The record is a 103-nucleotide RNA from Myripristis murdjan, which matches "Vault RNA" in Rfam. Rfam 15.1 lists 2,873 matches to the family in 431 species. It scores 58 bits against the family's covariance model. For this family Rfam cites "Evolution of Vault RNAs" (Stadler et al., Mol Biol Evol, 2009). Rfam describes the family as follows. This family of RNAs are found as part of the enigmatic vault ribonucleoprotein complex. The complex consists of a major vault protein (MVP), two minor vault proteins (VPARP and TEP1), and several small untranslated RNA molecules. It has been suggested that the vault complex is involved in drug resistance. Taxonomically the source falls in Myripristis (Eukaryota, Vertebrata, Osteoglossocephalai, Holocentriformes).
RNA sequence: GCGCUGGCGUAGCUCAGUGGUUACUUCAAUGCACAAAUCUCUGUUUGAUUUCGCAAAUCUCUCCCGACCAGGGAUCAAACCACGGGCGCUGUCCAGUGUUUUC
Numbered sequence: 001g002c003g004c005u006g007g008c009g010u011a012g013c014u015c016a017g018u019g020g021u022u023a024c025u026u027c028a029a030u031g032c033a034c035a036a037a038u039c040u041c042u043g044u045u046u047g048a049u050u051u052c053g054c055a056a057a058u059c060u061c062u063c064c065c066g067a068c069c070a071g072g073g074a075u076c077a078a079a080c081c082a083c084g085g086g087c088g089c090u091g092u093c094c095a096g097u098g099u100u101u102u103c
Base pairs, nucleotide, nucleotide: 002098003097004096005095006094007093012087013086014085015084017083018082019081020080025079026078029075